[Rfam]
RNA sequence: UAAAAGGGUCGGUUGGCUAAAUAUGCCACGCUUACCCAUAGAUUGGUAAGUGCUGUAUGGCUAUCAAGACAUAUGGCCGACAUAAUUUGUGGAAUCUUUUAUAGGGUUGGCUCGUUUCUGGCCGACCCUCCA
Dot-bracket structure: .......(((((.((((.......))))((((((((.(....).))))))))(((((((..........)))))))))))).....................((((((((((.(...).))))))))))...
Numbered sequence: 001u002a003a004a005a006g007g008g009u010c011g012g013u014u015g016g017c018u019a020a021a022u023a024u025g026c027c028a029c030g031c032u033u034a035c036c037c038a039u040a041g042a043u044u045g046g047u048a049a050g051u052g053c054u055g056u057a058u059g060g061c062u063a064u065c066a067a068g069a070c071a072u073a074u075g076g077c078c079g080a081c082a083u084a085a086u087u088u089g090u091g092g093a094a095u096c097u098u099u100u101a102u103a104g105g106g107u108u109g110g111c112u113c114g115u116u117u118c119u120g121g122c123c124g125a126c127c128c129u130c131c132a
Stems, first nucleotide, its partner, number of pairs: 008081005014028004029052008038043001053076007103129010114118001
U11 spliceosomal RNA: a 132-nucleotide sequence from Papaver somniferum. Lineage of the source: Eukaryota > Streptophyta > Embryophyta > Magnoliopsida > Papaver. A search with the family's covariance model found it, with a score of 76 bits.